[Rfam]
RNA sequence: GGGGCACGCUUAGAGCCCCUCGCACCUUGUGUUAAUAGUGAUGCCUUUGGCCGGGCAUCACGGUUAGUGAAUC
Numbered sequence: 001g002g003g004g005c006a007c008g009c010u011u012a013g014a015g016c017c018c019c020u021c022g023c024a025c026c027u028u029g030u031g032u033u034a035a036u037a038g039u040g041a042u043g044c045c046u047u048u049g050g051c052c053g054g055g056c057a058u059c060a061c062g063g064u065u066a067g068u069g070a071a072u073c
Base pairs, nucleotide, nucleotide: 001019002018003017004016005015032067033066034065035064036063038061039060040059041058042057043056044055045054046053
A member of the RNA family "L13-Bacteroidia ribosomal protein leader" from Hallella bergensis, 73 nucleotides long.